Rfam assigns this 168-nucleotide RNA sequence from Oceanispirochaeta sp. M1 to the family "Group II catalytic intron D1-D4-3".
Lineage of the source: Bacteria > Spirochaetia > Spirochaetales > Spirochaetaceae > Oceanispirochaeta.
From the family's description: Group II introns are found in rRNA, tRNA and mRNA of organelles in fungi, plants and protists, and also in mRNA in bacteria.

RNA sequence: UUUCUGGUAACGGAAGGGACUGAAGGAAGCAAUAGGAAGUGAAUGGUACAUAGCGAAAGCGAACCUGAUACGGCAGGCUGAGUGGGUAACCUUGCUAAAAAUGGGAACGCCCGAUACUGAUCAGACUCAGUUUGUGAUUGAGGAUGUGAUUGUUCACAGGGAGUCAGG
Number, nucleotide and partner (000 for none) at each position: 001u016002u015003u014004c013005u012006g011007g000008u000009a000010a000011c006012g005013g004014a003015a002016g001017g000018g000019a000020c000021u000022g000023a000024a000025g000026g000027a000028a000029g000030c000031a000032a000033u168034a000035g000036g165037a164038a000039g000040u000041g155042a154043a153044u152045g151046g150047u148048a147049c146050a145051u144052a000053g000054c000055g000056a000057a000058a000059g000060c000061g000062a000063a000064c143065c142066u141067g000068a139069u000070a000071c000072g000073g135074c134075a133076g000077g131078c130079u129080g128081a127082g126083u125084g112085g111086g110087u109088a000089a000090c105091c104092u103093u000094g000095c000096u000097a000098a000099a000100a000101a000102u000103g092104g091105g090106a000107a000108c000109g087110c086111c085112c084113g000114a000115u000116a000117c000118u000119g000120a000121u000122c000123a000124g000125a083126c082127u081128c080129a079130g078131u077132u000133u075134g074135u073136g000137a000138u000139u068140g000141a066142g065143g064144a051145u050146g049147u048148g047149a000150u046151u045152g044153u043154u042155c041156a000157c000158a000159g000160g000161g000162a000163g000164u037165c036166a000167g000168g033